[Rfam]
RNA sequence: GGAUAACACUUUUUGCUAUCCCCGAUCAAUAACACAAUGACACGUGAGAUAACUUUUUCAUGUGUCAUUGUGUUAUUGGCUAGAGAUAGCAAAACAAUGAUAUCC
Numbered sequence: 001g002g003a004u005a006a007c008a009c010u011u012u013u014u015g016c017u018a019u020c021c022c023c024g025a026u027c028a029a030u031a032a033c034a035c036a037a038u039g040a041c042a043c044g045u046g047a048g049a050u051a052a053c054u055u056u057u058u059c060a061u062g063u064g065u066c067a068u069u070g071u072g073u074u075a076u077u078g079g080c081u082a083g084a085g086a087u088a089g090c091a092a093a094a095c096a097a098u099g100a101u102a103u104c105c
Base pairs, nucleotide, nucleotide: 002104003103004102005101011094012093013092014091015090016089017088018087019086022083024081026079027078028077029076030075031074032073033072034071035070036069037068038067039066040065041064042063043062044061045060046059047058048057049056
MIR6274 microRNA precursor family: a 105-nucleotide sequence from Prunus avium. Its family is annotated with RISC complex and miRNA-mediated post-transcriptional gene silencing in the Gene Ontology.